[Rfam]
RNA: mir-128 microRNA precursor family
Organism: Oryzias javanicus
RNA sequence: GAGGUGCGGGACGCGGGGCCGGGACGCUGUCUGAGAGGCUGCUACGAAUCUCACAGUGAACCGGUCUCUUUUCCCGCCCCUCA
Numbered sequence: 001g002a003g004g005u006g007c008g009g010g011a012c013g014c015g016g017g018g019c020c021g022g023g024a025c026g027c028u029g030u031c032u033g034a035g036a037g038g039c040u041g042c043u044a045c046g047a048a049u050c051u052c053a054c055a056g057u058g059a060a061c062c063g064g065u066c067u068c069u070u071u072u073c074c075c076g077c078c079c080c081u082c083a
Base pairs, nucleotide, nucleotide: 006077007076008075009074010073015068016067017066018065019064020063021062025058026057027056028055029054030053033052034051035050